[Rfam]
RNA sequence: AGGAGCUUAUAGCUCUUUUUGAAUUUGUCCAGCAGGCCUUCCGGCUCAUACCGGAAGGCCCUA
Numbered sequence: 001a002g003g004a005g006c007u008u009a010u011a012g013c014u015c016u017u018u019u020u021g022a023a024u025u026u027g028u029c030c031a032g033c034a035g036g037c038c039u040u041c042c043g044g045c046u047c048a049u050a051c052c053g054g055a056a057g058g059c060c061c062u063a
Stems, first nucleotide, its partner, number of pairs: 035060010